[Rfam]
Shown here is a 93-nucleotide RNA from Brachionus plicatilis, a member of the family "mir-87 microRNA precursor family". It scores 52 bits against the family's covariance model. For this family Rfam cites "Temporal regulation of microRNA expression in Drosophila melanogaster mediated by hormonal signals and broad-Complex gene activity" (Sempere et al., Dev Biol, 2003). The source organism's lineage runs through Eukaryota, Opisthokonta, Metazoa, Gnathifera and Brachionus.
RNA sequence: AACUAUUGCACUUGAAACAUUGUUCAAACCUUAGUUAGAAUGCUAAAAUAGAUAGCUAUUUUCAGGUGAGCAAAGUUUCAAGUGUGUUUGUUA
Number, nucleotide and partner (000 for none) at each position: 001a000002a091003c090004u000005a088006u000007u086008g000009c084010a083011c082012u081013u080014g079015a078016a000017a076018c075019a000020u073021u072022g000023u070024u069025c068026a067027a000028a000029c066030c065031u064032u000033a000034g000035u000036u000037a000038g000039a000040a000041u000042g000043c000044u000045a000046a000047a000048a000049u000050a000051g000052a000053u000054a000055g000056c000057u000058a000059u000060u000061u000062u000063c000064a031065g030066g029067u026068g025069a024070g023071c000072a021073a020074a000075g018076u017077u000078u015079c014080a013081a012082g011083u010084g009085u000086g007087u000088u005089u000090g003091u002092u000093a000